[Rfam]
Shown here is an 87-nucleotide RNA from Zea mays, a member of the family "Small nucleolar RNA SNORD24". Rfam links the family to the GO terms nucleolus and RNA processing. The family's RNA type in Rfam is C/D-box small nucleolar RNA. A search with the family's covariance model found it, with a score of 51 bits.
RNA sequence: GGCCGGUGAUGUGACCAAAAUAUUUGCUACUCUCGAUGGGGCAAGCGCCCCGCCUAAUGACCAUGAACCGCCAAGAUCUCUAAGGCC
Numbered sequence: 001g002g003c004c005g006g007u008g009a010u011g012u013g014a015c016c017a018a019a020a021u022a023u024u025u026g027c028u029a030c031u032c033u034c035g036a037u038g039g040g041g042c043a044a045g046c047g048c049c050c051c052g053c054c055u056a057a058u059g060a061c062c063a064u065g066a067a068c069c070g071c072c073a074a075g076a077u078c079u080c081u082a083a084g085g086c087c
Stems, first nucleotide, its partner, number of pairs: 001087004